The family of this 136-nucleotide RNA sequence from Hymenochirus boettgeri is "U4 spliceosomal RNA". On this family, see Plaschka et al., Nature 2017: "Structure of a pre-catalytic spliceosome". Its family is annotated with U4 snRNP and spliceosomal tri-snRNP complex assembly in the Gene Ontology. It is annotated as a spliceosomal small nuclear RNA. The base pairs follow the family's consensus structure, which is taken from published work. Rfam describes the family as follows. U4 small nuclear RNA (U4 snRNA) is a component of the major U2-dependent spliceosome.
RNA sequence: AGCUUUGCGCAGUGGCAUAUCAUAGCAAUGAGGUGUAACCGAGGCGUGAUUAUUGUAGUUGAAAACUUUUCCCAAUACCCCGCAUGAUGACUUGAAAUACAGUCAGUACUGGCAAUUUUGACAGUCUCUCAGGAGG
Numbered sequence: 001a002g003c004u005u006u007g008c009g010c011a012g013u014g015g016c017a018u019a020u021c022a023u024a025g026c027a028a029u030g031a032g033g034u035g036u037a038a039c040c041g042a043g044g045c046g047u048g049a050u051u052a053u054u055g056u057a058g059u060u061g062a063a064a065a066c067u068u069u070u071c072c073c074a075a076u077a078c079c080c081c082g083c084a085u086g087a088u089g090a091c092u093u094g095a096a097a098u099a100c101a102g103u104c105a106g107u108a109c110u111g112g113c114a115a116u117u118u119u120g121a122c123a124g125u126c127u128c129u130c131a132g133g134a135g136g
Base pairs, nucleotide, nucleotide: 019050020049021048022047023046025045026043032040033039034038083111084110085108086107088105089104090103091102092101125136126135127134128133
Dot-bracket structure: ..................(((((.((.....(((...)))..).))))))................................((((.(((((........))))).)).)).............((((....))))